[Rfam]
RNA sequence: UGUAAUUGCGGUGAUGGAGUCCACCGAUAAAAUACCCGUCAAGGGUUGAUGACUCCUACCCGAAA
Numbered sequence: 001u002g003u004a005a006u007u008g009c010g011g012u013g014a015u016g017g018a019g020u021c022c023a024c025c026g027a028u029a030a031a032a033u034a035c036c037c038g039u040c041a042a043g044g045g046u047u048g049a050u051g052a053c054u055c056c057u058a059c060c061c062g063a064a065a
Base pairs, nucleotide, nucleotide: 010025011024012023013022016056017055018054019053020052021051034046035045036044037043
Fluoride riboswitch aptamer (crcB RNA motif): a 65-nucleotide RNA sequence from Thermanaeromonas toyohensis. The source organism's lineage runs through Bacteria, Bacillati, Neomoorellaceae, Thermanaeromonas and Thermanaeromonas toyohensis. The base pairs follow the family's consensus structure, which is taken from published work.